[Rfam]
RNA sequence: GGCCGUAGCACGCCUAAUCCCGGGCGCCUCGCCCGGGAGCCGGGGACCCAAACCGCACCUGGGGUGAAUCCGCUACGGCGGUAGGGAAUCGCACCUCCCUUGCCCGAACCCGUCAGCUAACCCGGCCGGCAGAGGGAGAGGAACA
Numbered sequence: 001g002g003c004c005g006u007a008g009c010a011c012g013c014c015u016a017a018u019c020c021c022g023g024g025c026g027c028c029u030c031g032c033c034c035g036g037g038a039g040c041c042g043g044g045g046a047c048c049c050a051a052a053c054c055g056c057a058c059c060u061g062g063g064g065u066g067a068a069u070c071c072g073c074u075a076c077g078g079c080g081g082u083a084g085g086g087a088a089u090c091g092c093a094c095c096u097c098c099c100u101u102g103c104c105c106g107a108a109c110c111c112g113u114c115a116g117c118u119a120a121c122c123c124g125g126c127c128g129g130c131a132g133a134g135g136g137a138g139a140g141g142a143a144c145a
Stems, first nucleotide, its partner, number of pairs: 012130003018038009039126006049061002062111003070081004084105003
Dot-bracket structure: ...........(((...(((((((((...)))))))))((((((....((.........))(((.....((((....))))..(((................)))...))).........)))))).)))...............